The family of this 148-nucleotide sequence from Alkalispirochaeta americana is "FMN riboswitch aptamer (RFN element)". The match comes from Rfam's covariance-model search (100 bits). The source organism's lineage runs through Bacteria, Pseudomonadati, Spirochaetia, Spirochaetales and Alkalispirochaeta.
RNA sequence: CGUGGUUUUCGGGGCAGGGUGCGUCGGCUUGUGCUGACAAUUCCCGACCGGCGGUUAUAGUCCGCGAGUGCUUUCCGGGUUUUCCCGGCUGCGCUGAACCGGUGAAAUUCCGGUACCGACGGUACAGUCCGGAAGGGAGAAAACCGCG
Dot-bracket structure: ..((((((((......(((.......................))).[[((((((.....[[))))..(((.....................)))...(((((.......)))))]])).(((....]]))).......))))))))..